[Rfam]
RNA sequence: AGCUUUGCGCAGUGGCAGUAUCGUAGCCAAUGAGGUUUAUCCGAGGCGCGAUUAUUGCUGAUUAUUGCUAAUGAAGCAAAUCUUAUCUAAUGCAUUAUAAUUUGGCAAAGUUGAAACAAAAAUGGCUUUU
Number, nucleotide and partner (000 for none) at each position: 001a000002g000003c000004u000005u000006u000007g000008c000009g000010c000011a000012g000013u000014g000015g000016c000017a000018g000019u000020a052021u051022c050023g049024u048025a000026g047027c046028c045029a000030a000031u000032g000033a000034g042035g041036u000037u000038u000039a000040u000041c035042c034043g000044a000045g028046g027047c026048g024049c023050g022051a021052u020053u000054a000055u000056u000057g000058c000059u000060g000061a000062u000063u000064a000065u000066u000067g000068c000069u000070a000071a000072u000073g000074a000075a000076g106077c105078a000079a102080a101081u100082c000083u000084u097085a096086u000087c000088u000089a000090a000091u000092g000093c000094a000095u000096u085097a084098u000099a000100a081101u080102u079103u000104g000105g077106c076107a000108a000109a000110g000111u000112u000113g000114a000115a000116a000117c000118a000119a130120a129121a128122a127123u000124g000125g000126c000127u122128u121129u120130u119

Shown here is a 130-nucleotide RNA sequence from Chinchilla lanigera, a member of the family "U4 spliceosomal RNA".
A search with the family's covariance model found it, with a score of 64 bits.
For this family Rfam cites "Crystal structure of the spliceosomal 15.5kD protein bound to a U4 snRNA fragment" (Vidovic et al., Mol Cell, 2000).
Pairs were carried over by alignment from the consensus structure, which is taken from published work.
The source organism's lineage runs through Eukaryota, Bilateria, Teleostomi, Amniota and Chinchilla.
About the family: U4 small nuclear RNA (U4 snRNA) is a component of the major U2-dependent spliceosome.